[Rfam]
RNA: Streptomyces sRNA 4677
Organism: Streptomyces sp. Ncost-T10-10d
RNA sequence: GGCUCCGCGCGACAUCAAGAACCUUGAAGAACCAGGGAAAUGAACCUUCCCAACCCCACCCUGCCACCCGUCACCCACAUGGGUGAAAAUGGCCAACUUAGCUGGAUAUCAGGCUGAUUGGCUGGCAUAUGCUCGCCGCGACGAACAUCCCCCAGACAUGCGACGGCCCCCGGCCGGGACGGCAAUCCCGAUCGAGGGCCUGACCAACGAGGAAGAGAAGCCUUCCCG
Numbered sequence: 001g002g003c004u005c006c007g008c009g010c011g012a013c014a015u016c017a018a019g020a021a022c023c024u025u026g027a028a029g030a031a032c033c034a035g036g037g038a039a040a041u042g043a044a045c046c047u048u049c050c051c052a053a054c055c056c057c058a059c060c061c062u063g064c065c066a067c068c069c070g071u072c073a074c075c076c077a078c079a080u081g082g083g084u085g086a087a088a089a090u091g092g093c094c095a096a097c098u099u100a101g102c103u104g105g106a107u108a109u110c111a112g113g114c115u116g117a118u119u120g121g122c123u124g125g126c127a128u129a130u131g132c133u134c135g136c137c138g139c140g141a142c143g144a145a146c147a148u149c150c151c152c153c154a155g156a157c158a159u160g161c162g163a164c165g166g167c168c169c170c171c172g173g174c175c176g177g178g179a180c181g182g183c184a185a186u187c188c189c190g191a192u193c194g195a196g197g198g199c200c201u202g203a204c205c206a207a208c209g210a211g212g213a214a215g216a217g218a219a220g221c222c223u224u225c226c227c228g
Base pairs, nucleotide, nucleotide: 001205007068009067011065071086072085073084074083075082076081101137103135104134105133165200166199167198168197169196171194172193176189177188178187179186211226212225213224214223215222